[Rfam]
RNA sequence: GAAGUCAGCCAGACAAUCGCUGCCCGAGCAAUCGGGGGGAGGAAAGUCCGGGCUCCACAGAGCAGGGUGACGGCUAACAGCCGUACGUCGCAAGGCGAGGAAUAGGGCCACAGAGACGAGCGUAUUCAGUUACGGUGAAACGCGGUAACCUCCACCCGGAGCAAUGCCAAAUAGGCGGACGAUGAAGUUGCUCGCCGAGUCCGCGGGUAGGCAGCUUGAGCCUUGGAGCAAUGCAAGGCCUAGAGGAAUGAUUGUCCACGACAGAACCCGGCUUACCGGCUGACUUCUCCU
Numbered sequence: 001g002a003a004g005u006c007a008g009c010c011a012g013a014c015a016a017u018c019g020c021u022g023c024c025c026g027a028g029c030a031a032u033c034g035g036g037g038g039g040a041g042g043a044a045a046g047u048c049c050g051g052g053c054u055c056c057a058c059a060g061a062g063c064a065g066g067g068u069g070a071c072g073g074c075u076a077a078c079a080g081c082c083g084u085a086c087g088u089c090g091c092a093a094g095g096c097g098a099g100g101a102a103u104a105g106g107g108c109c110a111c112a113g114a115g116a117c118g119a120g121c122g123u124a125u126u127c128a129g130u131u132a133c134g135g136u137g138a139a140a141c142g143c144g145g146u147a148a149c150c151u152c153c154a155c156c157c158g159g160a161g162c163a164a165u166g167c168c169a170a171a172u173a174g175g176c177g178g179a180c181g182a183u184g185a186a187g188u189u190g191c192u193c194g195c196c197g198a199g200u201c202c203g204c205g206g207g208u209a210g211g212c213a214g215c216u217u218g219a220g221c222c223u224u225g226g227a228g229c230a231a232u233g234c235a236a237g238g239c240c241u242a243g244a245g246g247a248a249u250g251a252u253u254g255u256c257c258a259c260g261a262c263a264g265a266a267c268c269c270g271g272c273u274u275a276c277c278g279g280c281u282g283a284c285u286u287c288u289c290c291u
Base pairs, nucleotide, nucleotide: 001287002286003285004284005283006282007281008280009279010278012256013255014254015253016252017251018250020039021038023036024035025034026033027032044274045273046272048271049270050269051268052267053161054160055159056158060193061192062191063190065157066156067155068154069153070084071083072082073081074080086097087096088095089094100152101151105150106149107146108145109144121134122133123132124131165213166212167211168210175204176203177202178201179200180199187195188194220239221238222237223236224235225234227232